The record is an 87-nucleotide RNA from Pelagibacterales bacterium SAG-MED16, which matches "tRNA" in Rfam. The match comes from Rfam's covariance-model search (63 bits). The base pairs follow the family's consensus structure, which is taken from published work. NCBI's taxonomy places the organism under Bacteria, Pseudomonadati, Pseudomonadota, Alphaproteobacteria, Candidatus Pelagibacterales. Transfer RNA (tRNA) molecules are approximately 80 nucleotides in length.

RNA sequence: GGAGAGAUGGCUGAGCGGUUGAAAGCAUCGGUCUUGAAAACCGACAAAGGGGCAACUCUUUCCUGGGUUCGAAUCCCAGUCUCUCCG
Numbered sequence: 001g002g003a004g005a006g007a008u009g010g011c012u013g014a015g016c017g018g019u020u021g022a023a024a025g026c027a028u029c030g031g032u033c034u035u036g037a038a039a040a041c042c043g044a045c046a047a048a049g050g051g052g053c054a055a056c057u058c059u060u061u062c063c064u065g066g067g068u069u070c071g072a073a074u075c076c077c078a079g080u081c082u083c084u085c086c087g
Stems, first nucleotide, its partner, number of pairs: 001086007010026003028044005063079005